About this RNA: A member of the RNA family "Ribosomal protein L13 leader" from Liquorilactobacillus oeni, 58 nucleotides long. Rfam's curators write: This family is a putative r-protein leader autoregulatory structure found in B. subtilis and other low-GC Gram-positive bacteria. It is located in the 5' untranslated regions of mRNAs encoding the L13-S9 (rplM-rpsI) ribosomal protein operon. The match comes from Rfam's covariance-model search (60 bits). Pairs were carried over by alignment from the consensus structure, which was predicted with CMfinder.

[Rfam]
RNA sequence: GGUAUUGUUUGCCCCACAGUAGGCCCCGGAAACUUAUUAUGUGUCAAACAAGCAUAUA
Numbered sequence: 001g002g003u004a005u006u007g008u009u010u011g012c013c014c015c016a017c018a019g020u021a022g023g024c025c026c027c028g029g030a031a032a033c034u035u036a037u038u039a040u041g042u043g044u045c046a047a048a049c050a051a052g053c054a055u056a057u058a
Base pairs, nucleotide, nucleotide: 006054007053008052009051010050011049015041016040018038019037020036021035022034023033